[Rfam]
RNA: Nuclear RNase P
RNA sequence: GGAGGGAAGCUCAGUGCUGAGGCUACAACCUGAGUGCAUUUGUCACUCUCAUACAUUCCUCAGGGAAGGUCUGAGAUUAGAGCCAUCUAUUGUCUUAACAAGGCAUUGCUUGGUUUGAGCAAAUGAGUUACCAUCAAACCUUGUUCUGUUGUCGCUAGACUGCACAAGUAAUAGAAGUGGUUUUCCUCUAUGGAUGCUGAGGCAACUGAUUUGGAAAGUGACUCAUGACUAGCAAAUUCAAGUUCAAUUGCUGAGAGGAAGUCAUUACUUCCUAACCCAAUUCAGACCACUCUCCGGAAUUCC
Numbered sequence: 001g002g003a004g005g006g007a008a009g010c011u012c013a014g015u016g017c018u019g020a021g022g023c024u025a026c027a028a029c030c031u032g033a034g035u036g037c038a039u040u041u042g043u044c045a046c047u048c049u050c051a052u053a054c055a056u057u058c059c060u061c062a063g064g065g066a067a068g069g070u071c072u073g074a075g076a077u078u079a080g081a082g083c084c085a086u087c088u089a090u091u092g093u094c095u096u097a098a099c100a101a102g103g104c105a106u107u108g109c110u111u112g113g114u115u116u117g118a119g120c121a122a123a124u125g126a127g128u129u130a131c132c133a134u135c136a137a138a139c140c141u142u143g144u145u146c147u148g149u150u151g152u153c154g155c156u157a158g159a160c161u162g163c164a165c166a167a168g169u170a171a172u173a174g175a176a177g178u179g180g181u182u183u184u185c186c187u188c189u190a191u192g193g194a195u196g197c198u199g200a201g202g203c204a205a206c207u208g209a210u211u212u213g214g215a216a217a218g219u220g221a222c223u224c225a226u227g228a229c230u231a232g233c234a235a236a237u238u239c240a241a242g243u244u245c246a247a248u249u250g251c252u253g254a255g256a257g258g259a260a261g262u263c264a265u266u267a268c269u270u271c272c273u274a275a276c277c278c279a280a281u282u283c284a285g286a287c288c289a290c291u292c293u294c295c296g297g298a299a300u301u302c303c
Stems, first nucleotide, its partner, number of pairs: 001303004005295003010255007018062005032048005037042001071285005081230002084227001091105005106122006123226007143210003256273007